[Rfam]
RNA sequence: ACGGGCUUUUUUCGCGGACGCCCGUUCAGACGGUUGUCGUCCAAGUCCGC
Numbered sequence: 001a002c003g004g005g006c007u008u009u010u011u012u013c014g015c016g017g018a019c020g021c022c023c024g025u026u027c028a029g030a031c032g033g034u035u036g037u038c039g040u041c042c043a044a045g046u047c048c049g050c
Stems, first nucleotide, its partner, number of pairs: 001025006014050005029041005
The family of this 50-nucleotide RNA sequence from Sphingomonas desiccabilis is "chrB-b RNA". It is annotated as a cis-regulatory element. The family's consensus secondary structure is taken from published work. Taxonomically the source falls in Sphingomonas (Bacteria, Pseudomonadota, Alphaproteobacteria, Sphingomonadales).